[Rfam]
A member of the RNA family "Nuclear RNase P" from Mytilus edulis, 284 nucleotides long. Rfam describes the family as follows. Ribonuclease P (RNase P) is a ubiquitous endoribonuclease, found in archaea, bacteria and eukarya as well as chloroplasts and mitochondria. Pairs were carried over by alignment from the consensus structure, which is taken from published work. The family's RNA type in Rfam is ribozyme.
RNA sequence: GUGAUGACAAUGCUUGCUUUAGGGGUAACAUACAAGGCAUGUGUUGCUAGUAGCACCCUUGGGAAGGUCUGAGACAUAGGUAAUCAACCCUCUUGCAGGGGGUUCUCCUAAUGGAGGAGUGAGUCAAUAGAAACCAGGCUAAGCUGGGAGUUACAGCAUGUGAUGUCUAUAGACUGAUGCAAAUCUUCCAGUUCUAGUUGAAAGAGACUCAUUACCAGCAAAAGUAGUACAAUUCGCAAGAUGGUCCAAGGACCAUAACUCAAUUCAGACUACUCUGCCAUCAC
Numbered sequence: 001g002u003g004a005u006g007a008c009a010a011u012g013c014u015u016g017c018u019u020u021a022g023g024g025g026u027a028a029c030a031u032a033c034a035a036g037g038c039a040u041g042u043g044u045u046g047c048u049a050g051u052a053g054c055a056c057c058c059u060u061g062g063g064a065a066g067g068u069c070u071g072a073g074a075c076a077u078a079g080g081u082a083a084u085c086a087a088c089c090c091u092c093u094u095g096c097a098g099g100g101g102g103u104u105c106u107c108c109u110a111a112u113g114g115a116g117g118a119g120u121g122a123g124u125c126a127a128u129a130g131a132a133a134c135c136a137g138g139c140u141a142a143g144c145u146g147g148g149a150g151u152u153a154c155a156g157c158a159u160g161u162g163a164u165g166u167c168u169a170u171a172g173a174c175u176g177a178u179g180c181a182a183a184u185c186u187u188c189c190a191g192u193u194c195u196a197g198u199u200g201a202a203a204g205a206g207a208c209u210c211a212u213u214a215c216c217a218g219c220a221a222a223a224g225u226a227g228u229a230c231a232a233u234u235c236g237c238a239a240g241a242u243g244g245u246c247c248a249a250g251g252a253c254c255a256u257a258a259c260u261c262a263a264u265u266c267a268g269a270c271u272a273c274u275c276u277g278c279c280a281u282c283a284c
Base pairs, nucleotide, nucleotide: 001284002283003282004281008277009276014238021060022059023058024057025056036048037047038046039045069268070267071266072265073264079216080215081214082213088102089101090100091099092098103118104117105116106115107114108113119212120211121210122209123208124207125206139197140196141195241256242255243254244253245252246251